[Rfam]
The record is a 76-nucleotide RNA sequence from Bubo bubo, which matches "mir-1788 microRNA precursor family" in Rfam. Its family is annotated with RISC complex and miRNA-mediated post-transcriptional gene silencing in the Gene Ontology. Lineage of the source: Eukaryota > Tetrapoda > Sauropsida > Archosauria > Bubo.

RNA sequence: CUGUCUCCGGGGCUUGUUUUCCGUUGCCUGCGUUUGUUCCUGUGGCUCAGGCAGCGAAAGCAAGUCUGGGAGGCUG
Numbered sequence: 001c002u003g004u005c006u007c008c009g010g011g012g013c014u015u016g017u018u019u020u021c022c023g024u025u026g027c028c029u030g031c032g033u034u035u036g037u038u039c040c041u042g043u044g045g046c047u048c049a050g051g052c053a054g055c056g057a058a059a060g061c062a063a064g065u066c067u068g069g070g071a072g073g074c075u076g
Base pairs, nucleotide, nucleotide: 003074004073006071007070008069010067011066012065013064014063015062016061017060018059019058020057022056023055024054025053026052027051028050029049030048032046